Background:
Shown here is a 68-nucleotide RNA sequence from Esox lucius, a member of the family "miR-430 microRNA precursor family". Rfam 15.1 lists 24,817 matches to the family in 105 species. The base pairs follow the family's consensus structure, which was predicted with RNAalifold. A search with the family's covariance model found it, with a score of 59 bits. Its family is annotated with RISC complex and miRNA-mediated post-transcriptional gene silencing in the Gene Ontology. The literature on the family includes a 2005 paper in Science by Giraldez et al., "MicroRNAs regulate brain morphogenesis in zebrafish". Taxonomically the source falls in Esox (Eukaryota, Bilateria, Vertebrata, Osteoglossocephalai).
RNA sequence: AUUGGUACCCUAACACGAGUAUUGACUGUCUAUAUAAGCAGUAAGUGCUACUUGUUGGGGUAGUUUGA
Numbered sequence: 001a002u003u004g005g006u007a008c009c010c011u012a013a014c015a016c017g018a019g020u021a022u023u024g025a026c027u028g029u030c031u032a033u034a035u036a037a038g039c040a041g042u043a044a045g046u047g048c049u050a051c052u053u054g055u056u057g058g059g060g061u062a063g064u065u066u067g068a
Base pairs, nucleotide, nucleotide: 004064006062007061008060009059010058011057013055014054015053017051018049019048020047021046022045023044025042026041027040